This 183-nucleotide sequence from Oceanobacillus iheyensis belongs to the Rfam family "Lysine riboswitch aptamer". NCBI's taxonomy places the organism under Bacteria, Bacillota, Caryophanales, Oceanobacillus, Oceanobacillus iheyensis. Its family is annotated with lysine biosynthetic process in the Gene Ontology. The match comes from Rfam's covariance-model search (108 bits). The family's consensus secondary structure is taken from published work.

[Rfam]
RNA sequence: GUUUUGGAUAGAGGUGCGGAGACCAUCAGUAUAUACGCGGAAGGGAAAUGAGCCCUAGUGAAGCGUAUGGAAAGGGGAAUCUGCCGAAGCGAGUGAAAUACUCAUUCAUUAACUCGUUGGUGCUGCUAUUGAACAAAUAACAGUGCUGUCAUAUAGGAGACUAUAUGGAGGGCUAUCGAGCUG
Number, nucleotide and partner (000 for none) at each position: 001g000002u000003u000004u000005u000006g000007g177008a176009u175010a174011g173012a000013g000014g000015u000016g084017c083018g082019g081020a080021g000022a000023c077024c076025a000026u000027c000028a000029g000030u000031a000032u069033a068034u067035a066036c065037g064038c063039g000040g000041a000042a000043g000044g000045g000046a000047a000048a000049u000050g000051a000052g000053c000054c000055c000056u000057a000058g000059u000060g000061a000062a000063g038064c037065g036066u035067a034068u033069g032070g000071a000072a000073a000074g000075g000076g024077g023078a000079a000080u020081c019082u018083g017084c016085c000086g000087a000088a118089g117090c116091g115092a114093g113094u112095g000096a110097a109098a000099u000100a000101c000102u000103c000104a000105u000106u000107c000108a000109u097110u096111a000112a094113c093114u092115c091116g090117u089118u088119g147120g146121u145122g144123c143124u142125g141126c000127u139128a138129u137130u136131g000132a000133a000134c000135a000136a130137a129138u128139a127140a000141c125142a124143g123144u122145g121146c120147u119148g000149u168150c167151a166152u165153a164154u163155a162156g000157g000158a000159g000160a000161c000162u155163a154164u153165a152166u151167g150168g149169a000170g000171g000172g000173c011174u010175a009176u008177c007178g000179a000180g000181c000182u000183g000